RNA sequence: UAUUGAGGUCAGGGGUUUCUAUCGGCCUCCAGCAGCAAAGACAGUUGUAGGCCGGCGGAAACUACUUGCUCUCUCUG
Numbered sequence: 001u002a003u004u005g006a007g008g009u010c011a012g013g014g015g016u017u018u019c020u021a022u023c024g025g026c027c028u029c030c031a032g033c034a035g036c037a038a039a040g041a042c043a044g045u046u047g048u049a050g051g052c053c054g055g056c057g058g059a060a061a062c063u064a065c066u067u068g069c070u071c072u073c074u075c076u077g
Base pairs, nucleotide, nucleotide: 005073006072007071008070010068011067012066013065014063015062016061017060018059019058020057022055023054024053025052026051027050028049030047031046032045
RNA: mir-2796 microRNA precursor family